[Rfam]
RNA: Gammaprotebacteria rimP leader
Organism: Vibrio xiamenensis
RNA sequence: AAGAUUCACUUAACAUUCAGGGUCCAGCAACAAAAAACCCCGACUUUCGGGGUUUUUUGUUAUCUGACUUUUUGAAAGUCGGAUAGUUGCUUGGUAUUUAAAUUGGGCUCUGAGCCCUUUUUUU
Numbered sequence: 001a002a003g004a005u006u007c008a009c010u011u012a013a014c015a016u017u018c019a020g021g022g023u024c025c026a027g028c029a030a031c032a033a034a035a036a037a038c039c040c041c042g043a044c045u046u047u048c049g050g051g052g053u054u055u056u057u058u059g060u061u062a063u064c065u066g067a068c069u070u071u072u073u074g075a076a077a078g079u080c081g082g083a084u085a086g087u088u089g090c091u092u093g094g095u096a097u098u099u100a101a102a103u104u105g106g107g108c109u110c111u112g113a114g115c116c117c118u119u120u121u122u123u124u
Stems, first nucleotide, its partner, number of pairs: 034056009105117004